A member of the RNA family "mraW RNA" from Mycobacterium sp. MCS, 96 nucleotides long. The base pairs follow the family's consensus structure, which is taken from published work. The organism belongs to Mycobacterium, within Bacteria. Rfam 15.1 lists 851 matches to the family in 821 species.
RNA sequence: GCCCGUGCAGCGUGGCCUCUGUCCGAACCGGCCCUGGCGUACUUCCCCGACGCCAGGUCCGCCUCGGACAGGGACCUCGCUGCAGGGGCGUACAGC
Numbered sequence: 001g002c003c004c005g006u007g008c009a010g011c012g013u014g015g016c017c018u019c020u021g022u023c024c025g026a027a028c029c030g031g032c033c034c035u036g037g038c039g040u041a042c043u044u045c046c047c048c049g050a051c052g053c054c055a056g057g058u059c060c061g062c063c064u065c066g067g068a069c070a071g072g073g074a075c076c077u078c079g080c081u082g083c084a085g086g087g088g089c090g091u092a093c094a095g096c
Stems, first nucleotide, its partner, number of pairs: 007083006014076002017073010029061003033057008